[Rfam]
RNA sequence: UAAUAUAAUUUUCUCCGAGCCAUCCUACCUAAAACAUUUAUGUCAAGGUAUUUUGGCCGUUAGGGUUAAUCUGGAAAUGGAUUAGCCUCCCUGUUGGAAAGGAGAGCAUUUUCCCGCCUG
Numbered sequence: 001u002a003a004u005a006u007a008a009u010u011u012u013c014u015c016c017g018a019g020c021c022a023u024c025c026u027a028c029c030u031a032a033a034a035c036a037u038u039u040a041u042g043u044c045a046a047g048g049u050a051u052u053u054u055g056g057c058c059g060u061u062a063g064g065g066u067u068a069a070u071c072u073g074g075a076a077a078u079g080g081a082u083u084a085g086c087c088u089c090c091c092u093g094u095u096g097g098a099a100a101g102g103a104g105a106g107c108a109u110u111u112u113c114c115c116g117c118c119u120g
Stems, first nucleotide, its partner, number of pairs: 011106006019057004026050004034043003063088011089097002